[Rfam]
RNA sequence: CGGCUGUAAUGGUCAAAUGGUUGAAGGCUUUCAUUACUCUUCUUCCGCUACCCCAUCCACAUUGGAACCCCUCAGCGGCGCCCAGUGCGAAUGCUGCGGUGGCCACCCACUCGCACGGGCAACCUGCGAUCGCUGCGUGUGGCCCUAAGCAAUGAAGAUAAUACUUGAGGGAGGUUUCACUCUGCAGAGGUAUCUUCACCGUCGCAUGGCGUGCUGGAUUACGAUCGCUGGGGGCUUGGGUUAGUGGUUGAGGCUGGAGAUGUCAACUCCAAUUUUU
Dot-bracket structure: .(((.......)))....(((((.(.(.(.((.....(((((..((((((.((.....(...).....(((.(((((.((.((((((((.((((.((((.(.((((.(..(((((.((....))))))).......).)))).)(...)...(((((((....(((....(((......)))....)))..))))))))))).))))..))))))))....))..))))).)))....)).))))))..))))...).)).).)...).)))))...
Numbered sequence: 001c002g003g004c005u006g007u008a009a010u011g012g013u014c015a016a017a018u019g020g021u022u023g024a025a026g027g028c029u030u031u032c033a034u035u036a037c038u039c040u041u042c043u044u045c046c047g048c049u050a051c052c053c054c055a056u057c058c059a060c061a062u063u064g065g066a067a068c069c070c071c072u073c074a075g076c077g078g079c080g081c082c083c084a085g086u087g088c089g090a091a092u093g094c095u096g097c098g099g100u101g102g103c104c105a106c107c108c109a110c111u112c113g114c115a116c117g118g119g120c121a122a123c124c125u126g127c128g129a130u131c132g133c134u135g136c137g138u139g140u141g142g143c144c145c146u147a148a149g150c151a152a153u154g155a156a157g158a159u160a161a162u163a164c165u166u167g168a169g170g171g172a173g174g175u176u177u178c179a180c181u182c183u184g185c186a187g188a189g190g191u192a193u194c195u196u197c198a199c200c201g202u203c204g205c206a207u208g209g210c211g212u213g214c215u216g217g218a219u220u221a222c223g224a225u226c227g228c229u230g231g232g233g234g235c236u237u238g239g240g241u242u243a244g245u246g247g248u249u250g251a252g253g254c255u256g257g258a259g260a261u262g263u264c265a266a267c268u269c270c271a272a273u274u275u276u277u
Stems, first nucleotide, its partner, number of pairs: 002014003019274005025268001027264001029262001031260002038257001039253004045247006052240002059063001069234003073230005079223002082217008091207004096202004101144001103142004108137001111129005117124002145149001153198007164189003171182003